Eukaryotic large subunit ribosomal RNA: a 596-nucleotide part of an RNA from Cyanidioschyzon merolae.

[Rfam]
RNA sequence: CGGGGAAAGAAGACCCUGUUGAGCUUGACUCUAGUCCGACUCUGUGAAACGAGUUAGGAGGUGUAGCAUAAGUGGGAGCCGCUCGCGGCGAUCCUGAAAUACCACUACUCCUAGUCUUGUUUUACUUACUCCAUGAGGCAGAGACGGGCGAAAGCCCUGCUUCACAAGCCACGCCGGCGCCGCCGGCCAUCUGCGUGGAGGACAAGGUCAGGUGGGGAGUUUGGCUGGGGCGGCACAUCUGCUAAACGAUAACGCAGAUGUCCUAAGGUGAGCUCAAUGAGAACGGAAAUCUCAUGUGGAACAAAAGGGUAAAAGCUCACUUGAUUUGGAUUUUCAGUACGAAUACAAACUGUGAAAGCAUGGCCUAUCGAUCCUUUGGACGUUCGAAGUUUGAAGCCAGAGGUGUCAGAAAAGUUACCACAGGGAUAACUGGCUUGUGGCAGCCAAGCGUUCAUAGCGACGUUGCUUUUUGAUCCUUCGAUGUCGGCUCUUCCUAUCAUUGUGAAGCAGAAUUCACCAAGUGUUGGAUUGUUCACCCACUAAUAGGGAACGUGAGCUGGGUUUAGACCGUCGUGAGACAGGUUAGUUUUACCCUA
Numbered sequence: 001c002g003g004g005g006a007a008a009g010a011a012g013a014c015c016c017u018g019u020u021g022a023g024c025u026u027g028a029c030u031c032u033a034g035u036c037c038g039a040c041u042c043u044g045u046g047a048a049a050c051g052a053g054u055u056a057g058g059a060g061g062u063g064u065a066g067c068a069u070a071a072g073u074g075g076g077a078g079c080c081g082c083u084c085g086c087g088g089c090g091a092u093c094c095u096g097a098a099a100u101a102c103c104a105c106u107a108c109u110c111c112u113a114g115u116c117u118u119g120u121u122u123u124a125c126u127u128a129c130u131c132c133a134u135g136a137g138g139c140a141g142a143g144a145c146g147g148g149c150g151a152a153a154g155c156c157c158u159g160c161u162u163c164a165c166a167a168g169c170c171a172c173g174c175c176g177g178c179g180c181c182g183c184c185g186g187c188c189a190u191c192u193g194c195g196u197g198g199a200g201g202a203c204a205a206g207g208u209c210a211g212g213u214g215g216g217g218a219g220u221u222u223g224g225c226u227g228g229g230g231c232g233g234c235a236c237a238u239c240u241g242c243u244a245a246a247c248g249a250u251a252a253c254g255c256a257g258a259u260g261u262c263c264u265a266a267g268g269u270g271a272g273c274u275c276a277a278u279g280a281g282a283a284c285g286g287a288a289a290u291c292u293c294a295u296g297u298g299g300a301a302c303a304a305a306a307g308g309g310u311a312a313a314a315g316c317u318c319a320c321u322u323g324a325u326u327u328g329g330a331u332u333u334u335c336a337g338u339a340c341g342a343a344u345a346c347a348a349a350c351u352g353u354g355a356a357a358g359c360a361u362g363g364c365c366u367a368u369c370g371a372u373c374c375u376u377u378g379g380a381c382g383u384u385c386g387a388a389g390u391u392u393g394a395a396g397c398c399a400g401a402g403g404u405g406u407c408a409g410a411a412a413a414g415u416u417a418c419c420a421c422a423g424g425g426a427u428a429a430c431u432g433g434c435u436u437g438u439g440g441c442a443g444c445c446a447a448g449c450g451u452u453c454a455u456a457g458c459g460a461c462g463u464u465g466c467u468u469u470u471u472g473a474u475c476c477u478u479c480g481a482u483g484u485c486g487g488c489u490c491u492u493c494c495u496a497u498c499a500u501u502g503u504g505a506a507g508c509a510g511a512a513u514u515c516a517c518c519a520a521g522u523g524u525u526g527g528a529u530u531g532u533u534c535a536c537c538c539a540c541u542a543a544u545a546g547g548g549a550a551c552g553u554g555a556g557c558u559g560g561g562u563u564u565a566g567a568c569c570g571u572c573g574u575g576a577g578a579c580a581g582g583u584u585a586g587u588u589u590u591a592c593c594c595u596a
Base pairs, nucleotide, nucleotide: 003595004594005593007590008589015424016423017422018421020420021419022416023415024414025413026412028220029219030218031217035212036211038209039208040207041206044125045124046123047122048121049120050119051118052117053116054114055113056112057111058110059109060108071106072105073104074103075102078089079088129200130199131198132197133196139193140192141191142190147156148155173187174186175185176184177183223236224234225233226232237259238258239257240256241255242254262363263362268320269319270318271317272316273315274300275299277295278294279293280292281291282290301310302309325349326348327347328346330344331343332342333341351360352359353358374402375401376400377399378398379397383395384394385393433474435472437471439467440466441465442464443463444462448458449457485560486558487557488556489555490552491549492548493547494546495545498523499522502517503516504515505514506513525539526538527537529535566584567583568582569581570579571578572577
Record summary:
The base pairs follow the family's consensus structure, which is taken from published work. It is one of the family's seed sequences.